[Rfam]
RNA sequence: AAUGCAAUGAUGAUAUUGGGGAUUUCGAAAGUGGCGACAUCAAUUGCCGUGAGCUUUCAAUCCAAAAAACGACUUCUCUUUCCACUGAGCAUU
Dot-bracket structure: (((((...................................................................................)))))
Numbered sequence: 001a002a003u004g005c006a007a008u009g010a011u012g013a014u015a016u017u018g019g020g021g022a023u024u025u026c027g028a029a030a031g032u033g034g035c036g037a038c039a040u041c042a043a044u045u046g047c048c049g050u051g052a053g054c055u056u057u058c059a060a061u062c063c064a065a066a067a068a069a070c071g072a073c074u075u076c077u078c079u080u081u082c083c084a085c086u087g088a089g090c091a092u093u
Stems, first nucleotide, its partner, number of pairs: 001093005